[Rfam]
RNA sequence: UUCUUAUCAAGAGUAGGCUGAGGGACUGGCCCGAUGACGCCCGGCAACCGGUAUGUAUUCAUAUACGGUGCCAAUUCCAGCAGGAUUUUUAUCCUGAAAGAUAAGGG
Numbered sequence: 001u002u003c004u005u006a007u008c009a010a011g012a013g014u015a016g017g018c019u020g021a022g023g024g025a026c027u028g029g030c031c032c033g034a035u036g037a038c039g040c041c042c043g044g045c046a047a048c049c050g051g052u053a054u055g056u057a058u059u060c061a062u063a064u065a066c067g068g069u070g071c072c073a074a075u076u077c078c079a080g081c082a083g084g085a086u087u088u089u090u091a092u093c094c095u096g097a098a099a100g101a102u103a104a105g106g107g
Base pairs, nucleotide, nucleotide: 001107002106003105004104005103006102007101008100013042016041017040018039022032023031024030026080027079028078029077043072044071045070046069048068049067051064052063053062054061076099081096082095083094084093085092086091
SAM riboswitch aptamer (S box leader): a 107-nucleotide sequence from Aneurinibacillus migulanus. About the family: The SAM riboswitch is found upstream of a number of genes which code for proteins involved in methionine or cysteine biosynthesis in Gram-positive bacteria.